[Rfam]
Nucleotides: 404
Base pairs, nucleotide, nucleotide: 001400002399003398004397005396006395007394008393009392010391011389012345013344014343015342016341017340018339020037021036022035023034024033025032026031042387043386044385046384047383048382049381050380051228052227053226054225058281059280060279061278063224064223065222066221067220068082069081070080071079072078083097084095085094086093087092098219099218103217104216105213106212107211120158121157122154123153124152126150127149128148129147130146166184167183168182169181170180171179186208187206188205189204190203191202192201193200194199232302233301234300235299261293262292263291264290265289266288273285274284275283276282309329310328311327312326313325314323315322316321
Number, partner (000 for none) and nucleotide at each position: 001400c002399g003398a004397g005396u006395u007394g008393g009392c010391c011389g012345g013344g014343c015342g016341g017340c018339c019000g020037c021036g022035g023034a024033c025032c026031g027000g028000a029000a030000a031026c032025g033024g034023u035022u036021c037020g038000a039000g040000g041000a042387a043386a044385g045000u046384c047383c048382g049381g050380a051228c052227u053226u054225c055000a056000c057000a058281g059280a060279g061278c062000a063224g064223g065222g066221u067220g068082a069081u070080u071079g072078c073000u074000a075000a076000c077000g078072g079071c080070a081069a082068u083097c084095c085094g086093a087092g088000g089000u090000g091000a092087c093086u094085c095084g096000c097083g098219g099218g100000a101000c102000a103217g104216u105213g106212c107211c108000a109000c110000a111000g112000a113000a114000a115000a116000c117000a118000g119000a120158c121157c122154g123153c124152c125000a126150c127149c128148c129147c130146u131000g132000a133000c134000g135000c136000c137000u138000u139000c140000g141000g142000g143000c144000a145000a146130a147129g148128g149127g150126g151000c152124g153123g154122u155000a156000a157121g158120g159000g160000u161000g162000a163000a164000a165000c166184g167183g168182u169181g170180c171179g172000g173000u174000a175000a176000g177000a178000g179171c180170g181169c182168a183167c184166c185000a186208g187206c188205a189204c190203c191202c192201c193200g194199g195000g196000u197000g198000a199194c200193c201192g202191g203190g204189g205188u206187g207000g208186c209000u210000c211107g212106g213105u214000a215000a216104a217103c218099c219098c220067c221066a222065c223064c224063c225054g226053a227052a228051g229000c230000a231000a232302g233301g234300c235299c236000a237000a238000g239000a240000g241000g242000c243000c244000g245000c246000a247000c248000c249000c250000g251000g252000u253000g254000c255000g256000g257000c258000u259000g260000c261293g262292c263291a264290g265289g266288c267000g268000c269000u270000c271000g272000a273285g274284g275283g276282u277000u278061g279060c280059u281058c282276g283275c284274c285273c286000g287000a288266g289265c290264c291263u292262g293261c294000g295000g296000g297000u298000a299235g300234g301233c302232c303000g304000c305000u306000c307000g308000a309329g310328g311327c312326a313325c314323c315322c316321g317000g318000c319000g320000a321316c322315g323314g324000a325313g326312u327311g328310c329309c330000c331000a332000g333000a334000u335000g336000g337000a338000u339018g340017g341016u342015c343014g344013c345012c346000g347000c348000c349000g350000c351000g352000c353000c354000g355000u356000c357000a358000g359000c360000a361000a362000u363000g364000a365000c366000g367000g368000c369000g370000c371000g372000g373000a374000a375000c376000a377000g378000a379000a380050u381049c382048c383047g384046g385044c386043u387042u388000a389011c390000a391010g392009g393008c394007c395006a396005g397004c398003u399002c400001g401000u402000c403000c404000g

Record summary:
Shown here is a 404-nucleotide RNA sequence from Mycobacterium sp. MCS, a member of the family "Bacterial RNase P class A". Gene Ontology terms of the family: dimeric ribonuclease P complex, tRNA processing and ribonuclease P activity. The sequence is in the family's curated seed alignment. By type it is a ribozyme. Pairs were carried over by alignment from the consensus structure, which is taken from published work.